RNA: Small nucleolar RNA SNORA64/SNORA10 family
RNA sequence: CCUCUCUCAGCUCUGCACAGUCACACUUGGUUUCACCCGUGUGGCUUUCGUAAAGGGGAGAGAGAGCAAAGAUCCCCUCGGGACCCAGGAGUGGCCUCAUGUGGCUUCUCUUCCCUCGAGGGGUGCAACAGGC
Numbered sequence: 001c002c003u004c005u006c007u008c009a010g011c012u013c014u015g016c017a018c019a020g021u022c023a024c025a026c027u028u029g030g031u032u033u034c035a036c037c038c039g040u041g042u043g044g045c046u047u048u049c050g051u052a053a054a055g056g057g058g059a060g061a062g063a064g065a066g067c068a069a070a071g072a073u074c075c076c077c078u079c080g081g082g083a084c085c086c087a088g089g090a091g092u093g094g095c096c097u098c099a100u101g102u103g104g105c106u107u108c109u110c111u112u113c114c115c116u117c118g119a120g121g122g123g124u125g126c127a128a129c130a131g132g133c
Base pairs, nucleotide, nucleotide: 002066003065004064005063006062007061008060011058012057013056014055019046020045021044022043023042024041025040026039074123075122076121077120078119080117081116082115088111089110090109093106094105095104096103
Dot-bracket structure: .(((((((..((((....((((((((............))))))))........)))).))))))).......(((((.(((.....(((..((((......))))..)))...))).)))))..........